[Rfam]
RNA sequence: UAUGAUAAAGGGCAAAAUUAGAGUAAUCUAAUGACGCAAAGCUAAAGGGUCCUACGGGAUAGCCAGUUGCAAGU
Numbered sequence: 001u002a003u004g005a006u007a008a009a010g011g012g013c014a015a016a017a018u019u020a021g022a023g024u025a026a027u028c029u030a031a032u033g034a035c036g037c038a039a040a041g042c043u044a045a046a047g048g049g050u051c052c053u054a055c056g057g058g059a060u061a062g063c064c065a066g067u068u069g070c071a072a073g074u
Base pairs, nucleotide, nucleotide: 012037013036017032018031019030020029021028022027040068041067042066043065047064048063049060050059051058